Notes
This 77-nucleotide RNA sequence from Conger conger belongs to the Rfam family "mir-193 microRNA precursor family". A search with the family's covariance model found it, with a score of 64 bits. Gene Ontology terms of the family: RISC complex and miRNA-mediated post-transcriptional gene silencing.
RNA sequence: GUUAGAGUUUGGGUCUUUGUGGGCAAGGUGAGUCGUAAACAUUCUCUCAACUGGCCUUCAAAGUCCCAGUCUUUGAC
Numbered sequence: 001g002u003u004a005g006a007g008u009u010u011g012g013g014u015c016u017u018u019g020u021g022g023g024c025a026a027g028g029u030g031a032g033u034c035g036u037a038a039a040c041a042u043u044c045u046c047u048c049a050a051c052u053g054g055c056c057u058u059c060a061a062a063g064u065c066c067c068a069g070u071c072u073u074u075g076a077c
Stems, first nucleotide, its partner, number of pairs: 003075005010068004015063005021057004026052002029049002
Description: The literature on the family includes a 2010 paper in BMC Genomics by Linsen et al., "Small RNA expression and strain specificity in the rat".